[Rfam]
Nucleotides: 361
Base pairs, nucleotide, nucleotide: 001361002360003359004358007355008354009353012273013272014271020071021070022069023068024067035057036056037055039053040051080345081344082343083342084341089230090229091228092227133144134143135142136141147159148158149157150156161226162225163224164223165222167220182212184210185209186208274333275332276331277330278329279328
Number, partner (000 for none) and nucleotide at each position: 001361c002360a003359c004358c005000a006000c007355c008354c009353a010000a011000u012273g013272c014271u015000u016000g017000c018000g019000u020071a021070c022069u023068u024067g025000c026000u027000c028000a029000c030000a031000c032000a033000c034000a035057g036056a037055c038000a039053u040051c041000g042000c043000u044000g045000c046000u047000u048000g049000c050000a051040g052000c053039a054000c055037g056036u057035c058000u059000u060000a061000u062000u063000u064000u065000g066000g067024c068023a069022a070021g071020u072000g073000a074000g075000a076000a077000a078000u079000u080345c081344g082343g083342a084341g085000c086000a087000c088000g089230c090229u091228u092227c093000a094000a095000a096000a097000a098000a099000c100000a101000a102000c103000g104000c105000u106000a107000u108000c109000c110000g111000u112000g113000c114000u115000u116000g117000c118000g119000c120000g121000g122000c123000g124000c125000u126000g127000g128000c129000a130000a131000c132000u133144g134143c135142u136141c137000g138000u139000g140000a141136g142135a143134g144133c145000c146000u147159a148158c149157c150156a151000u152000g153000a154000a155000a156150u157149g158148g159147u160000u161226g162225c163224a164223u165222u166000u167220g168000g169000c170000a171000u172000c173000a174000g175000a176000a177000a178000a179000u180000c181000a182212g183000c184210c185209c186208g187000g188000c189000u190000c191000g192000g193000c194000u195000u196000c197000g198000g199000u200000c201000g202000c203000a204000g205000u206000c207000g208186u209185g210184g211000u212182u213000a214000u215000g216000g217000g218000a219000g220167c221000c222165g223164g224163u225162g226161c227092g228091a229090a230089g231000c232000u233000u234000g235000u236000g237000u238000g239000u240000a241000c242000u243000a244000c245000a246000u247000g248000u249000a250000c251000g252000a253000c254000a255000c256000u257000u258000u259000a260000g261000u262000g263000c264000a265000a266000u267000a268000c269000g270000c271014a272013g273012c274333g275332u276331a277330u278329c279328u280000g281000c282000g283000c284000c285000u286000c287000u288000u289000g290000c291000c292000a293000u294000u295000a296000c297000a298000c299000c300000u301000g302000u303000c304000g305000c306000g307000a308000g309000a310000c311000a312000u313000g314000g315000u316000g317000g318000g319000u320000g321000g322000g323000g324000g325000u326000c327000a328279g329278g330277g331276u332275a333274u334000c335000a336000u337000u338000c339000g340000a341084u342083u343082c344081c345080g346000a347000u348000u349000a350000u351000u352000c353009u354008g355007g356000g357000u358004g359003g360002u361001g